[Rfam]
RNA sequence: UAAGAAACUUUAGCGCCAUGCUCCAAUUCUAUUGGAUAACGAGGGCCUUGAUGAUCGAAAUGUUCGGCGGAUGUCAGGGCGUCUGUGCAGAGACGAAAGGGAGAAACAAACCGGAGAUGUGAGUCUGCGACAAAAUACUUCCACUGCAUGUG
Dot-bracket structure: ((.(.......................).))..............(((((....((((.....)))).......)))))(((((......)))))...(((((........((.((((....)))).))........)))))..........
This 152-nucleotide RNA from Lachnospiraceae bacterium A10 belongs to the Rfam family "glmS glucosamine-6-phosphate activated ribozyme aptamer". The source organism's lineage runs through Bacteria, Bacillati, Bacillota, Clostridia and Lachnospiraceae. On this family, see Jansen et al., Nat Struct Mol Biol 2006: "Backbone and nucleobase contacts to glucosamine-6-phosphate in the glmS ribozyme". It is annotated as a riboswitch.